Rfam assigns this 67-nucleotide RNA from Alteribacillus persepolensis to the family "Bacillaceae-1 RNA".
The match comes from Rfam's covariance-model search (61 bits).
It is annotated as a small RNA.
[Rfam]
RNA sequence: AAAGAAGGAAGUUUGGCUGAGAGCGUCAUGUCCUGUGGCAACGCCGAACUCACUCCCUUCCUGGGAG
Number, nucleotide and partner (000 for none) at each position: 001a000002a000003a000004g000005a000006a000007g000008g000009a000010a000011g049012u048013u047014u046015g045016g044017c043018u000019g000020a000021g000022a000023g000024c000025g039026u038027c037028a036029u035030g000031u000032c000033c000034u000035g029036u028037g027038g026039c025040a000041a000042c000043g017044c016045c015046g014047a013048a012049c011050u000051c000052a000053c067054u066055c065056c064057c063058u000059u000060c000061c000062u000063g057064g056065g055066a054067g053